RNA sequence: CAUGUCUAUUGUACUUCAUCAGGUGCUCUGGUGCCUUGAAAACCCGGCACAUGUUGAAGUACAUUCAAUAUG
Numbered sequence: 001c002a003u004g005u006c007u008a009u010u011g012u013a014c015u016u017c018a019u020c021a022g023g024u025g026c027u028c029u030g031g032u033g034c035c036u037u038g039a040a041a042a043c044c045c046g047g048c049a050c051a052u053g054u055u056g057a058a059g060u061a062c063a064u065u066c067a068a069u070a071u072g
Stems, first nucleotide, its partner, number of pairs: 001072004010063003014059005020053002023050005030044002
Dot-bracket structure: ((((.....(((.(((((.((.(((((..((...........)).))))).)).))))).))).....))))
Record summary:
This 72-nucleotide RNA from Lucilia cuprina belongs to the Rfam family "mir-305 microRNA precursor family". Rfam links the family to the GO terms miRNA-mediated post-transcriptional gene silencing and RISC complex. A search with the family's covariance model found it, with a score of 91 bits. The literature on the family includes a 2010 paper in BMC Genomics by Skalsky et al., "Identification of microRNAs expressed in two mosquito vectors, Aedes albopictus and Culex quinquefasciatus".